[Rfam]
RNA: Small nucleolar RNA SNORA63
Nucleotides: 132
Stems, first nucleotide, its partner, number of pairs: 003056005016043010084113004089108001091106002
Number, partner (000 for none) and nucleotide at each position: 001000a002000a003056g004055c005054a006053g007052g008000a009000u010000a011000u012000a013000g014000u015000u016043a017042c018041a019040a020039u021038g022037u023036a024035g025034c026000u027000g028000u029000g030000a031000a032000g033000u034025g035024c036023u037022a038021c039020a040019u041018u042017g043016u044000c045000u046000u047000u048000g049000c050000u051000g052007c053006c054005u055004g056003c057000u058000c059000a060000a061000a062000a063000u064000a065000a066000g067000a068000c069000u070000g071000u072000u073000u074000c075000c076000u077000u078000c079000c080000a081000a082000g083000c084113c085112c086111u087110g088000u089108c090000c091106g092105c093000a094000g095000u096000g097000g098000u099000g100000c101000c102000c103000u104000a105092g106091c107000a108089g109000c110087c111086a112085g113084g114000g115000a116000u117000g118000u119000g120000u121000a122000g123000u124000c125000u126000c127000a128000u129000a130000c131000a132000u